RNA: Group II catalytic intron D1-D4-4
RNA sequence: UAGUUGGUGAAAGUCCAACCAAGAGAGGGACCAAGCCACUCUUGUAGCUAGGAUGCUUGCGUAUGGCGAAAUCUGUGCGUAAAAGCGCAUCGACGAAAGUACCUGUCUGAGACAGGGCGAGCAACAAUCCAGGUUGUAACAUGA
Numbered sequence: 001u002a003g004u005u006g007g008u009g010a011a012a013g014u015c016c017a018a019c020c021a022a023g024a025g026a027g028g029g030a031c032c033a034a035g036c037c038a039c040u041c042u043u044g045u046a047g048c049u050a051g052g053a054u055g056c057u058u059g060c061g062u063a064u065g066g067c068g069a070a071a072u073c074u075g076u077g078c079g080u081a082a083a084a085g086c087g088c089a090u091c092g093a094c095g096a097a098a099g100u101a102c103c104u105g106u107c108u109g110a111g112a113c114a115g116g117g118c119g120a121g122c123a124a125c126a127a128u129c130c131a132g133g134u135u136g137u138a139a140c141a142u143g144a
Base pairs, nucleotide, nucleotide: 020044021043022042023041024040052091053090054089055088056087057082058081059080060079061078062077066073099118102116103115104114105113106112121137122136123135